[Rfam]
RNA sequence: AGUUUCUACUAGGGGAGCCUGUGGUGCAGGCUGAGAAAAAAGCGAUCAACUUUUUGACCCUCAGGACCUGAUCUGGAUCAUGCCAGCGUAGGGAAGUAGUUUAGUCGUUUA
Numbered sequence: 001a002g003u004u005u006c007u008a009c010u011a012g013g014g015g016a017g018c019c020u021g022u023g024g025u026g027c028a029g030g031c032u033g034a035g036a037a038a039a040a041a042g043c044g045a046u047c048a049a050c051u052u053u054u055u056g057a058c059c060c061u062c063a064g065g066a067c068c069u070g071a072u073c074u075g076g077a078u079c080a081u082g083c084c085a086g087c088g089u090a091g092g093g094a095a096g097u098a099g100u101u102u103a104g105u106c107g108u109u110u111a
Stems, first nucleotide, its partner, number of pairs: 006099005011061004016055001017031005038054005067092004073086004